[Rfam]
RNA sequence: UCCACCGCGAGGUGGAAUCUGAAGGAAGUCGGCGGCCAAACUCUGGUCUGACGAACAGAAACUACACAUAAGGCAUAUGUUUGUGGGUAAGUUUGCAAUACAAAACGAAGCCCAAAACUAUUCAAAACAGGCGGUGUAAAUGUAGCAGAUAGAUGGAGUGAAAGAUUGCGUU
Numbered sequence: 001u002c003c004a005c006c007g008c009g010a011g012g013u014g015g016a017a018u019c020u021g022a023a024g025g026a027a028g029u030c031g032g033c034g035g036c037c038a039a040a041c042u043c044u045g046g047u048c049u050g051a052c053g054a055a056c057a058g059a060a061a062c063u064a065c066a067c068a069u070a071a072g073g074c075a076u077a078u079g080u081u082u083g084u085g086g087g088u089a090a091g092u093u094u095g096c097a098a099u100a101c102a103a104a105a106c107g108a109a110g111c112c113c114a115a116a117a118c119u120a121u122u123c124a125a126a127a128c129a130g131g132c133g134g135u136g137u138a139a140a141u142g143u144a145g146c147a148g149a150u151a152g153a154u155g156g157a158g159u160g161a162a163a164g165a166u167u168g169c170g171u172u
Base pairs, nucleotide, nucleotide: 001016002015003014004013005012006011028172030170031169036164040159041158042157043156044155045154046150047149048148049147050146062145063144064143065142066141073137074136075135078133079132080131081130082129083128084127085113086112087111088110091106092105093104094103
Shown here is a 172-nucleotide RNA from Clostridium putrefaciens, a member of the family "Group II catalytic intron D1-D4-3". Its family is annotated with Group II intron splicing in the Gene Ontology. Lineage of the source: Bacteria > Bacillati > Clostridia > Eubacteriales > Clostridium.